[Rfam]
RNA sequence: AACGGAGCAAUAACCCCUUUCUUGUUCUAUCAAGAAGGCGUUAUUGUUCCCCC
Dot-bracket structure: ...(((((((((((....((((((......))))))...)))))))))))...
RNA: Plastid-psbA-3 3UTR RNA